Small nucleolar RNA R11/Z151: a 91-nucleotide RNA from Asparagus officinalis.
NCBI's taxonomy places the organism under Eukaryota, Viridiplantae, Asparagales, Asparagoideae, Asparagus.
Rfam classes the family as a C/D-box small nucleolar RNA.
The literature on the family includes a 2001 paper in J Mol Biol by Barneche et al., "Identification of 66 box C/D snoRNAs in Arabidopsis thaliana: extensive gene duplications generated multiple isoforms predicting new ribosomal RNA 2'-O-methylation sites".
RNA sequence: UGGCUGAUGAUGAUUGAUCUCUAAUAUCUUAGCGGAUUUCAGUGAGAUUCGUCUGUGAUCUGAUUUUUUGUUGUUACACACACUGAAACCA
Numbered sequence: 001u002g003g004c005u006g007a008u009g010a011u012g013a014u015u016g017a018u019c020u021c022u023a024a025u026a027u028c029u030u031a032g033c034g035g036a037u038u039u040c041a042g043u044g045a046g047a048u049u050c051g052u053c054u055g056u057g058a059u060c061u062g063a064u065u066u067u068u069u070g071u072u073g074u075u076a077c078a079c080a081c082a083c084u085g086a087a088a089c090c091a
Base pairs, nucleotide, nucleotide: 001091002090003089005087